[Rfam]
RNA sequence: AUGAUAGCUCAAUAAGAAAACCAUAUAAUUCUAGUAAUACGGUCUGGAAGUUUCUACAAGUUACCCGUAAAGUAACUUACUAUGGCAAAGGUCUUUUUGUCC
Number, nucleotide and partner (000 for none) at each position: 001a000002u000003g000004a000005u000006a000007g000008c000009u000010c000011a000012a000013u000014a000015a000016g000017a000018a000019a000020a000021c085022c084023a083024u082025a081026u000027a000028a000029u049030u048031c047032u046033a045034g044035u000036a000037a000038u000039a000040c000041g000042g000043u000044c034045u033046g032047g031048a030049a029050g000051u000052u000053u000054c000055u000056a000057c000058a078059a077060g076061u075062u074063a073064c072065c000066c000067g000068u000069a000070a000071a000072g064073u063074a062075a061076c060077u059078u058079a000080c000081u025082a024083u023084g022085g021086c000087a000088a000089a000090g000091g000092u000093c000094u000095u000096u000097u000098u000099g000100u000101c000102c000
Purine riboswitch aptamer: a 102-nucleotide RNA from Vagococcus carniphilus. Rfam 15.1 lists 4,097 matches to the family in 1,411 species. The match comes from Rfam's covariance-model search (74 bits).